The family of this 126-nucleotide RNA from Bos mutus is "Small nucleolar RNA SNORA43". The source organism's lineage runs through Eukaryota, Opisthokonta, Bilateria, Eutheria and Bos. Rfam links the family to the GO terms RNA processing and nucleolus.
RNA sequence: GAUGCUGGACUUGCUGGCACCAUGGGUGCAGCUGCCCUCAGGAUGUUGGGGCAGAGAUGAAGCAGUUAUUUCUACACUCAGUGCUCAGAAUAGUGGGCACUAAGGAUGGUUUAUAGCCAGACUUCA
Numbered sequence: 001g002a003u004g005c006u007g008g009a010c011u012u013g014c015u016g017g018c019a020c021c022a023u024g025g026g027u028g029c030a031g032c033u034g035c036c037c038u039c040a041g042g043a044u045g046u047u048g049g050g051g052c053a054g055a056g057a058u059g060a061a062g063c064a065g066u067u068a069u070u071u072c073u074a075c076a077c078u079c080a081g082u083g084c085u086c087a088g089a090a091u092a093g094u095g096g097g098c099a100c101u102a103a104g105g106a107u108g109g110u111u112u113a114u115a116g117c118c119a120g121a122c123u124u125c126a
Stems, first nucleotide, its partner, number of pairs: 003053002005049004023040003065117002072109003077104002082099006